Annotation:
Shown here is a 73-nucleotide sequence from Clostridium botulinum, a member of the family "RAGATH-18 RNA". The family's consensus secondary structure is taken from published work. It is annotated as a small RNA. NCBI's taxonomy places the organism under Bacteria, Bacillota, Eubacteriales, Clostridiaceae, Clostridium botulinum E.

RNA sequence: CCUGUGAAGAAUCAUACCAAAUGAAAGUAGUAUGUGAUUUAUCACUACAAAAUCAGAUUCGUUGAAACAGGAA
Dot-bracket structure: (((((...(((((........(((.....(((.((........)))))....))))))))......)))))..